The family of this 86-nucleotide RNA is "Small nucleolar RNA snoR31/Z110/Z27". The literature on the family includes a 2003 paper in Nucleic Acids Res by Chen et al., "The high diversity of snoRNAs in plants: identification and comparative study of 120 snoRNA genes from Oryza sativa". Rfam describes the family as follows. This family contains several related snoRNAs including R31, Z27 and Z110. The family's RNA type in Rfam is C/D-box small nucleolar RNA.
[Rfam]
RNA sequence: AAUAUCAAGUGAUGAAUAUUUUCAUUAAUCUUAGGACACCUUUGGACGCUGUUGCGAAUGAAAAUGAAUCUUAUUCUGAUGAGAUG
Numbered sequence: 001a002a003u004a005u006c007a008a009g010u011g012a013u014g015a016a017u018a019u020u021u022u023c024a025u026u027a028a029u030c031u032u033a034g035g036a037c038a039c040c041u042u043u044g045g046a047c048g049c050u051g052u053u054g055c056g057a058a059u060g061a062a063a064a065u066g067a068a069u070c071u072u073a074u075u076c077u078g079a080u081g082a083g084a085u086g
Stems, first nucleotide, its partner, number of pairs: 002085002005082003044050002